[Rfam]
The record is a 100-nucleotide sequence from Tissierella sp. P1, which matches "TPP riboswitch aptamer (THI element)" in Rfam. A search with the family's covariance model found it, with a score of 79 bits. Gene Ontology term of the family: thiamine pyrophosphate binding. The family's consensus secondary structure is taken from published work. Taxonomically the source falls in Tissierella (Bacteria, Bacillati, Bacillota, Tissierellaceae).

RNA sequence: GAUUAACACUAGGGGAGCCAAUUGGCUGAGAGUGGAUUUAUCCCGACCCUUAUGACCUGACCUAGGUAAUGCUAGCGUAGGGAAGUGUGUAUUAGCCUUU
Numbered sequence: 001g002a003u004u005a006a007c008a009c010u011a012g013g014g015g016a017g018c019c020a021a022u023u024g025g026c027u028g029a030g031a032g033u034g035g036a037u038u039u040a041u042c043c044c045g046a047c048c049c050u051u052a053u054g055a056c057c058u059g060a061c062c063u064a065g066g067u068a069a070u071g072c073u074a075g076c077g078u079a080g081g082g083a084a085g086u087g088u089g090u091a092u093u094a095g096c097c098u099u100u
Stems, first nucleotide, its partner, number of pairs: 006088005011050004017026003034043003056081004062075004